[Rfam]
RNA sequence: GGAGUGGUCCGGACGGUCGCGUUGGAUGCUUGCAUCCACCGAGGAAAGUCCGGGCUGCACAGGGCAGAACGCCGGCUAACGGCCGGUGGGGGCGACCCCGAGGAAAGUGCCACAGAAAACAGACCGCCGUGGCUUGCCACGGUAAGGGUGAAAAGGUGCGGUAAGAGCGCACCGCCCGGUCUGGUAACAGACCGGGGCACGGUAAACCCCGUUCGCAGCAAGGCCAAAUAGGGAAGUAUUGGCGCGGCCCGCGUUUGCUUCCGGGUAGGCUGCUCGAGCCUGCCGGUAACGGCAGGCCUAGAUGAAUGACCGUCAUCCCGCUUGCGGGAGACAGAACCCGGCUUACAGGGCCACUCCGUAU
Number, nucleotide and partner (000 for none) at each position: 001g357002g356003a355004g354005u353006g352007g351008u350009c349010c348011g346012g314013a313014c312015g311016g310017u309018c308019g000020c041021g040022u000023u038024g037025g036026a035027u034028g033029c000030u000031u000032g000033c028034a027035u026036c025037c024038a023039c000040c021041g020042a000043g000044g000045a000046a344047a343048g342049u000050c341051c340052g339053g338054g337055c218056u217057g216058c215059a000060c000061a000062g250063g249064g248065c247066a000067g214068a213069a212070c211071g210072c086073c085074g084075g083076c082077u000078a000079a000080c000081g000082g076083c075084c074085g073086g072087u101088g099089g098090g097091g096092g000093c000094g000095a000096c091097c090098c089099c088100g000101a087102g209103g208104a000105a000106a000107g207108u206109g203110c202111c201112a000113c000114a000115g000116a000117a000118a000119a000120c000121a000122g000123a000124c147125c146126g143127c142128c141129g140130u139131g138132g137133c000134u000135u000136g000137c132138c131139a130140c129141g128142g127143u126144a000145a000146g125147g124148g000149u000150g000151a000152a000153a000154a000155g173156g172157u171158g170159c169160g168161g000162u000163a000164a000165g000166a000167g000168c160169g159170c158171a157172c156173c155174g198175c196176c195177c194178g000179g192180u191181c190182u189183g188184g000185u000186a000187a000188c183189a182190g181191a180192c179193c000194g177195g176196g175197g000198c174199a000200c000201g111202g110203u109204a000205a000206a108207c107208c103209c102210c071211g070212u069213u068214c067215g058216c057217a056218g055219c000220a000221a000222g271223g270224c269225c268226a000227a000228a000229u000230a000231g000232g262233g261234a260235a259236g258237u257238a000239u000240u000241g255242g254243c253244g252245c251246g000247g065248c064249c063250c062251g245252c244253g243254u242255u241256u000257g237258c236259u235260u234261c233262c232263g000264g000265g000266u000267a000268g225269g224270c223271u222272g000273c000274u000275c000276g000277a000278g297279c296280c295281u294282g293283c292284c291285g290286g000287u000288a000289a000290c285291g284292g283293c282294a281295g280296g279297c278298c000299u000300a000301g000302a000303u000304g000305a000306a000307u000308g018309a017310c016311c015312g014313u013314c012315a000316u000317c000318c000319c000320g000321c000322u000323u000324g000325c000326g000327g000328g000329a000330g000331a000332c000333a000334g000335a000336a000337c054338c053339c052340g051341g050342c048343u047344u046345a000346c011347a000348g010349g009350g008351c007352c006353a005354c004355u003356c002357c001358g000359u000360a000361u000
Overview:
This 361-nucleotide sequence from Mariprofundus ferrinatatus belongs to the Rfam family "Bacterial RNase P class A". It scores 347 bits against the family's covariance model. For this family Rfam cites "Ribonuclease P: unity and diversity in a tRNA processing ribozyme" (Frank and Pace, Annu Rev Biochem, 1998).